[Rfam]
RNA sequence: CAAUAGCCCCGAUUGUAGCGGAAAUCCUUUUUUUUAGAAAGUGCUAUUUUUUUCAAAUUUAAAACAGCGCCCGAAGGAAGCUCGUUUUUAAUUUAGAAAAAAAAGCGGUUUAAAAAAAGAUUGUAGCGGAAAGCGGGAAAUAGC
Numbered sequence: 001c002a003a004u005a006g007c008c009c010c011g012a013u014u015g016u017a018g019c020g021g022a023a024a025u026c027c028u029u030u031u032u033u034u035u036a037g038a039a040a041g042u043g044c045u046a047u048u049u050u051u052u053u054c055a056a057a058u059u060u061a062a063a064a065c066a067g068c069g070c071c072c073g074a075a076g077g078a079a080g081c082u083c084g085u086u087u088u089u090a091a092u093u094u095a096g097a098a099a100a101a102a103a104a105g106c107g108g109u110u111u112a113a114a115a116a117a118a119g120a121u122u123g124u125a126g127c128g129g130a131a132a133g134c135g136g137g138a139a140a141u142a143g144c
Stems, first nucleotide, its partner, number of pairs: 009136003013132002018127002023122004029117006036110001
Dot-bracket structure: ........(((.((...((...((((..((((((.(.........................................................................).)))))).))))...))...)).)))........
The family of this 144-nucleotide RNA from Flavobacterium macacae is "Flavo-1 RNA". Pairs were carried over by alignment from the consensus structure, which is taken from published work. The organism belongs to Flavobacterium, within Bacteria. The match comes from Rfam's covariance-model search (69 bits).